[Rfam]
RNA: Small nucleolar RNA Z266
Organism: Oryza brachyantha
RNA sequence: GAUUGGCUGGAAUGAUGAAUCAAUUAGACGUGUGAACUCACUAUAUGAUGUAAACUUUUGAGGCAUAAUUAGACCCGCCAAGU
Dot-bracket structure: (.(((((.((...............................................................)).))))).)